[Rfam]
Rfam assigns this 73-nucleotide RNA from Ophiophagus hannah to the family "mir-10 microRNA precursor family". Its family is annotated with miRNA-mediated post-transcriptional gene silencing and RISC complex in the Gene Ontology. The organism belongs to Ophiophagus, within Eukaryota. The family's consensus secondary structure was predicted with PFOLD.
RNA sequence: UUAUAUAUACCCUGUAGAAUCGAAUUUGUGUGAGCACCUCUAUUGCAAAUUCGUCUCUAGGGGGAUAUAUGGA
Numbered sequence: 001u002u003a004u005a006u007a008u009a010c011c012c013u014g015u016a017g018a019a020u021c022g023a024a025u026u027u028g029u030g031u032g033a034g035c036a037c038c039u040c041u042a043u044u045g046c047a048a049a050u051u052c053g054u055c056u057c058u059a060g061g062g063g064g065a066u067a068u069a070u071g072g073a
Stems, first nucleotide, its partner, number of pairs: 002071006010063003016058003021053010